Annotation: A member of the RNA family "Proteobacterial sRNA psRNA2" from Burkholderia plantarii, 188 nucleotides long. Taxonomically the source falls in Burkholderia (Bacteria, Pseudomonadati, Betaproteobacteria, Burkholderiaceae). The literature on the family includes a 2010 paper in FEMS Microbiol Lett by Gvakharia et al., "Computational prediction and transcriptional analysis of sRNAs in Nitrosomonas europaea". Rfam classes the family as a small RNA.
[Rfam]
RNA sequence: GGGUGACUCCUUGGCGCUUGCGCGCUGUUUUGAUGAAGAUUCGCACCUCUAUCAAAACGGGUAACCCCACCUCUUGGCAAGGUCUUACUGUCAGAUCAAGUCUGAACUUCUACACCUAAGAUAUCCCUGCAUCGUUUUGCGUCCAGUCGCAUUGUAGUUCUGCUCCCACCAUCCCGAGUCGUACGUCU
Numbered sequence: 001g002g003g004u005g006a007c008u009c010c011u012u013g014g015c016g017c018u019u020g021c022g023c024g025c026u027g028u029u030u031u032g033a034u035g036a037a038g039a040u041u042c043g044c045a046c047c048u049c050u051a052u053c054a055a056a057a058c059g060g061g062u063a064a065c066c067c068c069a070c071c072u073c074u075u076g077g078c079a080a081g082g083u084c085u086u087a088c089u090g091u092c093a094g095a096u097c098a099a100g101u102c103u104g105a106a107c108u109u110c111u112a113c114a115c116c117u118a119a120g121a122u123a124u125c126c127c128u129g130c131a132u133c134g135u136u137u138u139g140c141g142u143c144c145a146g147u148c149g150c151a152u153u154g155u156a157g158u159u160c161u162g163c164u165c166c167c168a169c170c171a172u173c174c175c176g177a178g179u180c181g182u183a184c185g186u187c188u
Base pairs, nucleotide, nucleotide: 001067002066003065004064006062007061009060010059014025015024016023017022027058028057029056030055031054032053033052034051035050037048038047075171076170077169081164082163084162090107091106092104093103094102095101096100110157111156112155114153178187